Actinobacteria sRNA Ms_IGR-5: a 217-nucleotide sequence from Actinoallomurus iriomotensis. A search with the family's covariance model found it, with a score of 91 bits.

RNA sequence: AAGCGGGAAAGGAGGUGGUCCGAAACUUAUGCAUAGUACGAGGACUCGUGAGGUGGCUGUCCGCUAGUCGCCGUCCCGCCUACGCCUCCUCAUAGGAGGUAGGCAACCGGCCGAGGACGCGGCCGGCGAAUACCAGGCAGACACCCGACCCCCGUGGCCGGUCGACCCAGUCCUGUCGACCCCUGCUCCGGCAGGAACAGCCCGGGGGUCGUUUCAU
Numbered sequence: 001a002a003g004c005g006g007g008a009a010a011g012g013a014g015g016u017g018g019u020c021c022g023a024a025a026c027u028u029a030u031g032c033a034u035a036g037u038a039c040g041a042g043g044a045c046u047c048g049u050g051a052g053g054u055g056g057c058u059g060u061c062c063g064c065u066a067g068u069c070g071c072c073g074u075c076c077c078g079c080c081u082a083c084g085c086c087u088c089c090u091c092a093u094a095g096g097a098g099g100u101a102g103g104c105a106a107c108c109g110g111c112c113g114a115g116g117a118c119g120c121g122g123c124c125g126g127c128g129a130a131u132a133c134c135a136g137g138c139a140g141a142c143a144c145c146c147g148a149c150c151c152c153c154g155u156g157g158c159c160g161g162u163c164g165a166c167c168c169a170g171u172c173c174u175g176u177c178g179a180c181c182c183c184u185g186c187u188c189c190g191g192c193a194g195g196a197a198c199a200g201c202c203c204g205g206g207g208g209u210c211g212u213u214u215c216a217u
Base pairs, nucleotide, nucleotide: 014061015060016059017058018057019056062128063127064126065125067123068122070120071119146211147210148209149208150207151206152205153204154203156202157201158200161180162179163178164177165176166175
Dot-bracket structure: .............((((((....................................))))))((((.((.((...............................................)).)).)))).................(((((((((.(((..((((((........))))))...................))))))))))))......
Pairs were carried over by alignment from the consensus structure.
It is annotated as a small RNA.
Lineage of the source: Bacteria > Bacillati > Actinomycetes > Thermomonosporaceae > Actinoallomurus.